Annotation
Shown here is a 115-nucleotide RNA from Rhodococcus sp. ABRD24, a member of the family "SAM (S-adenosyl methionine) riboswitch aptamer". The base pairs follow the family's consensus structure, which is taken from published work.

RNA sequence: GGUCACGAGUACCAGCAUCAAGCCCCGGCUAGCUGGUCGGCAACCCUCCAACCGCGGUGGGGUGCUCCGGGUGACGACCAGGCUGUCGCCCAAAAGGGCACGGCAAGCGCGGACU
Numbered sequence: 001g002g003u004c005a006c007g008a009g010u011a012c013c014a015g016c017a018u019c020a021a022g023c024c025c026c027g028g029c030u031a032g033c034u035g036g037u038c039g040g041c042a043a044c045c046c047u048c049c050a051a052c053c054g055c056g057g058u059g060g061g062g063u064g065c066u067c068c069g070g071g072u073g074a075c076g077a078c079c080a081g082g083c084u085g086u087c088g089c090c091c092a093a094a095a096g097g098g099c100a101c102g103g104c105a106a107g108c109g110c111g112g113a114c115u
Base pairs, nucleotide, nucleotide: 001079002078003077004076009038011037012036013035014034015033016032021030022029039066040065041064044062045061046060048057049056082104083103084102085101086100088099089098090097091096
It scores 115 bits against the family's covariance model.